A member of the RNA family "c-di-AMP riboswitch aptamer (ydaO/yuaA leader)" from Actinoplanes sp. OR16, 136 nucleotides long.

RNA sequence: CGGGGACCGCCGCCUAAUCGCCCCCUGCGGCGAGCCGGGGAACCAUAUUUCCUCGGGGUGAAUCCGCAUCCGCGGUAGGGAUUUCCUUCGUCCCGAACCCGUCAGCUAACUCGGUCGGCGGCCGACGGAAGGAAUG
Numbered sequence: 001c002g003g004g005g006a007c008c009g010c011c012g013c014c015u016a017a018u019c020g021c022c023c024c025c026u027g028c029g030g031c032g033a034g035c036c037g038g039g040g041a042a043c044c045a046u047a048u049u050u051c052c053u054c055g056g057g058g059u060g061a062a063u064c065c066g067c068a069u070c071c072g073c074g075g076u077a078g079g080g081a082u083u084u085c086c087u088u089c090g091u092c093c094c095g096a097a098c099c100c101g102u103c104a105g106c107u108a109a110c111u112c113g114g115u116c117g118g119c120g121g122c123c124g125a126c127g128g129a130a131g132g133a134a135u136g
Stems, first nucleotide, its partner, number of pairs: 011120004018033005034115006044055001056100003064075004078094004